Vault RNA: a 102-nucleotide RNA from Echeneis naucrates. About the family: This family of RNAs are found as part of the enigmatic vault ribonucleoprotein complex. The base pairs follow the family's consensus structure, which is taken from published work. Rfam 15.1 lists 2,873 matches to the family in 431 species. Taxonomically the source falls in Echeneis (Eukaryota, Eumetazoa, Deuterostomia, Carangiformes). A search with the family's covariance model found it, with a score of 68 bits.
[Rfam]
RNA sequence: GCACUGGUUUAGCUCAGUGGUUACUUCAUCAACAAUUCUCUUAGAAUACGCUGAUCUCCAUCCCUCUGUGGGAUCGAACCACGGGCGCUGUCCAGUGUUUUC
Numbered sequence: 001g002c003a004c005u006g007g008u009u010u011a012g013c014u015c016a017g018u019g020g021u022u023a024c025u026u027c028a029u030c031a032a033c034a035a036u037u038c039u040c041u042u043a044g045a046a047u048a049c050g051c052u053g054a055u056c057u058c059c060a061u062c063c064c065u066c067u068g069u070g071g072g073a074u075c076g077a078a079c080c081a082c083g084g085g086c087g088c089u090g091u092c093c094a095g096u097g098u099u100u101u102c
Stems, first nucleotide, its partner, number of pairs: 002097006012086004017082004025078003